The family of this 132-nucleotide RNA from Podarcis lilfordi is "Small nucleolar RNA SNORA41". Rfam classes the family as an H/ACA-box small nucleolar RNA. On this family, see Huttenhofer et al., EMBO J 2001: "RNomics: an experimental approach that identifies 201 candidates for novel, small, non-messenger RNAs in mouse".
RNA sequence: UCCCACAGCUACUGGCCUGAAACUGCUCUGUACUGUAGCAGUUGCAGUAUUCCAACUGUGGGAGAUUAGCAGUUACACUAUGCAAUGCUCCUUUCUCCACCAGGGAAGAGAAUUUCAGUGUAACAGACAGGA
Numbered sequence: 001u002c003c004c005a006c007a008g009c010u011a012c013u014g015g016c017c018u019g020a021a022a023c024u025g026c027u028c029u030g031u032a033c034u035g036u037a038g039c040a041g042u043u044g045c046a047g048u049a050u051u052c053c054a055a056c057u058g059u060g061g062g063a064g065a066u067u068a069g070c071a072g073u074u075a076c077a078c079u080a081u082g083c084a085a086u087g088c089u090c091c092u093u094u095c096u097c098c099a100c101c102a103g104g105g106a107a108g109a110g111a112a113u114u115u116c117a118g119u120g121u122a123a124c125a126g127a128c129a130g131g132a
Stems, first nucleotide, its partner, number of pairs: 003061004017047003021043005075121005089111002091108006
Rfam's curators write: ACA41 is a member of the H/ACA class of snoRNA that guide the sites of modification of uridines to pseudouridines.